[Rfam]
RNA sequence: AUUCGUUCUCAGGGCGGGGUGAAACUCCCCACCGGCGGUAAGGAGGAAACUCCAAGCCCGCGAGCGCCUGGUCUUCCGAAGGGGAGGGCAGGGUCAGCAGAUCCGGUGUAACUCCGGAGCCGACGGUUAAAGUCCGGAUGAAAGAGAAUGAGG
Numbered sequence: 001a002u003u004c005g006u007u008c009u010c011a012g013g014g015c016g017g018g019g020u021g022a023a024a025c026u027c028c029c030c031a032c033c034g035g036c037g038g039u040a041a042g043g044a045g046g047a048a049a050c051u052c053c054a055a056g057c058c059c060g061c062g063a064g065c066g067c068c069u070g071g072u073c074u075u076c077c078g079a080a081g082g083g084g085a086g087g088g089c090a091g092g093g094u095c096a097g098c099a100g101a102u103c104c105g106g107u108g109u110a111a112c113u114c115c116g117g118a119g120c121c122g123a124c125g126g127u128u129a130a131a132g133u134c135c136g137g138a139u140g141a142a143a144g145a146g147a148a149u150g151a152g153g
Stems, first nucleotide, its partner, number of pairs: 003151008017029003031133002033122002035061004056120002064098002102118005124136003
The record is a 153-nucleotide RNA from Agrobacterium albertimagni, which matches "FMN riboswitch aptamer (RFN element)" in Rfam. The source organism's lineage runs through Bacteria, Pseudomonadati, Hyphomicrobiales, Rhizobiaceae and Agrobacterium albertimagni. A search with the family's covariance model found it, with a score of 121 bits. The family's consensus secondary structure is taken from published work.